This 99-nucleotide sequence from Breznakiella homolactica belongs to the Rfam family "Bacterial small signal recognition particle RNA".
Clan: SRP clan.
From the family's description: The signal recognition particle (SRP) is a universally conserved ribonucleoprotein involved in the co-translational targeting of proteins to membranes.
For this family Rfam cites "Kinship in the SRP RNA family" (Rosenblad et al., RNA Biol, 2009).
[Rfam]
RNA sequence: AGCCAGGAACCAUGCGAGCAGACACCGCCCAACUCCGCCAGGUCCGGAAGGAAGCAACGGCAAGCGGCUGCCUGCGGCGCCGUGGCAUCCCUGGUUACG
Numbered sequence: 001a002g003c004c005a006g007g008a009a010c011c012a013u014g015c016g017a018g019c020a021g022a023c024a025c026c027g028c029c030c031a032a033c034u035c036c037g038c039c040a041g042g043u044c045c046g047g048a049a050g051g052a053a054g055c056a057a058c059g060g061c062a063a064g065c066g067g068c069u070g071c072c073u074g075c076g077g078c079g080c081c082g083u084g085g086c087a088u089c090c091c092u093g094g095u096u097a098c099g
Base pairs, nucleotide, nucleotide: 004093005092006091007090010085011084012083013082014081015077018075019074020073021072025067026066027065028064035060036059037058043052044051045050
Dot-bracket structure: ...((((..((((((..((((...((((......(((.....(((....))).....)))...))))....)))).)...)))))....))))......